[Rfam]
Nucleotides: 089
Base pairs, nucleotide, nucleotide: 003089004088006087007086
Number, partner (000 for none) and nucleotide at each position: 001000u002000u003089g004088g005000c006087u007086g008000c009000g010000a011000u012000g013000a014000u015000u016000a017000u018000a019000a020000a021000a022000a023000a024000u025000u026000c027000c028000u029000c030000g031000u032000u033000c034000u035000g036000a037000a038000u039000g040000c041000c042000a043000u044000u045000g046000c047000c048000a049000u050000g051000g052000c053000a054000u055000g056000a057000u058000a059000g060000a061000c062000a063000c064000g065000u066000u067000u068000a069000c070000a071000c072000c073000c074000a075000u076000a077000g078000a079000a080000u081000a082000u083000g084000a085000g086007c087006a088004c089003c